c-di-GMP-I riboswitch aptamer: an 86-nucleotide sequence from Sporomusa silvacetica. The organism belongs to Sporomusa silvacetica, within Bacteria. Pairs were carried over by alignment from the consensus structure, which is taken from published work. The match comes from Rfam's covariance-model search (68 bits). GEMM was predicted in a large-scale screen for bacterial structured RNA regulatory elements.
RNA sequence: AUAAAUAUUUGGUAAAUUUGUCGAAAGGCAAUGACACAAAGCUAUGGGUCUAAGGACGGAGAGUCUAUGAUUGCCAAGCCGCCAAC
Numbered sequence: 001a002u003a004a005a006u007a008u009u010u011g012g013u014a015a016a017u018u019u020g021u022c023g024a025a026a027g028g029c030a031a032u033g034a035c036a037c038a039a040a041g042c043u044a045u046g047g048g049u050c051u052a053a054g055g056a057c058g059g060a061g062a063g064u065c066u067a068u069g070a071u072u073g074c075c076a077a078g079c080c081g082c083c084a085a086c
Base pairs, nucleotide, nucleotide: 012037013036018031019030020029021028022027041079042078043077045076046075047074048071049070050069055065056064057063